Rfam assigns this 75-nucleotide RNA sequence from Xanthomonas campestris to the family "Xanthomonas sRNA sX9". Taxonomically the source falls in Xanthomonas campestris pv. campestris (Bacteria, Gammaproteobacteria, Lysobacterales, Lysobacteraceae). Pairs were carried over by alignment from the consensus structure, which was predicted with RNAalifold. The family has 16 seed sequences and 309 matches in Rfam 15.1. For this family Rfam cites "Genome-wide transcriptome analysis of the plant pathogen Xanthomonas identifies sRNAs with putative virulence functions" (Schmidtke et al., Nucleic Acids Res, 2011).
RNA sequence: AUGUCCCUACGUAGACUCCGGUUCCCAUGCGCAGUGCGCACCCACCUGACGACUGCUCGCUACGUUUUGUUAGCC
Numbered sequence: 001a002u003g004u005c006c007c008u009a010c011g012u013a014g015a016c017u018c019c020g021g022u023u024c025c026c027a028u029g030c031g032c033a034g035u036g037c038g039c040a041c042c043c044a045c046c047u048g049a050c051g052a053c054u055g056c057u058c059g060c061u062a063c064g065u066u067u068u069g070u071u072a073g074c075c
Stems, first nucleotide, its partner, number of pairs: 002015001004013001006011001019034001021032002024029001046073007